[Rfam]
RNA sequence: GUCUUUUACGAGGUACGAGCGCUUUUCUUUCAUGAGGGGGAAGGAGUGAGGGAAGGACCGAACAGCAGCAGGCAGGUCUGGGCGCCUGGACUUGCCUUUUCCCCUUCGCCCUCUGAGGAGUUCAAUCCGUUGGCGCUCCUGCUUCACUUCUUUUAAGAGAAAGAGUAAGUUUUUCUUUU
Numbered sequence: 001g002u003c004u005u006u007u008a009c010g011a012g013g014u015a016c017g018a019g020c021g022c023u024u025u026u027c028u029u030u031c032a033u034g035a036g037g038g039g040g041a042a043g044g045a046g047u048g049a050g051g052g053a054a055g056g057a058c059c060g061a062a063c064a065g066c067a068g069c070a071g072g073c074a075g076g077u078c079u080g081g082g083c084g085c086c087u088g089g090a091c092u093u094g095c096c097u098u099u100u101c102c103c104c105u106u107c108g109c110c111c112u113c114u115g116a117g118g119a120g121u122u123c124a125a126u127c128c129g130u131u132g133g134c135g136c137u138c139c140u141g142c143u144u145c146a147c148u149u150c151u152u153u154u155a156a157g158a159g160a161a162a163g164a165g166u167a168a169g170u171u172u173u174u175c176u177u178u179u
Stems, first nucleotide, its partner, number of pairs: 003019002007015003029120003033116001035114005040107004050102002053100003070079003080095001082093001084091001129175001132172002135170003142163003145159001147157003
RNA: Connexin-43 internal ribosome entry site (IRES)